[Rfam]
RNA sequence: GGCGUAUCUUGCGUUGGCGGAGCUCGACCGCCGGUCGAAAUGAUGGUGGAUUUCAUUGACGCGCACAGGAGCGCGCACGGGGUCGAGCCGAUCCGCAAGGUGCUGCCGAUCGCCCCG
Numbered sequence: 001g002g003c004g005u006a007u008c009u010u011g012c013g014u015u016g017g018c019g020g021a022g023c024u025c026g027a028c029c030g031c032c033g034g035u036c037g038a039a040a041u042g043a044u045g046g047u048g049g050a051u052u053u054c055a056u057u058g059a060c061g062c063g064c065a066c067a068g069g070a071g072c073g074c075g076c077a078c079g080g081g082g083u084c085g086a087g088c089c090g091a092u093c094c095g096c097a098a099g100g101u102g103c104u105g106c107c108g109a110u111c112g113c114c115c116c117g
Stems, first nucleotide, its partner, number of pairs: 016032005078117005089112002092109002095106003
RNA: ALIL pseudoknot
Organism: Roseisalinus antarcticus